[Rfam]
RNA: Plastid-psbA-4 3UTR RNA
RNA sequence: AAAGGAGCAAUAAUCAACUUCUUGUUUUAUCAAGAGGGUUGACAUUGCUCCUUUCU
Numbered sequence: 001a002a003a004g005g006a007g008c009a010a011u012a013a014u015c016a017a018c019u020u021c022u023u024g025u026u027u028u029a030u031c032a033a034g035a036g037g038g039u040u041g042a043c044a045u046u047g048c049u050c051c052u053u054u055c056u
Stems, first nucleotide, its partner, number of pairs: 001054011016039001019036006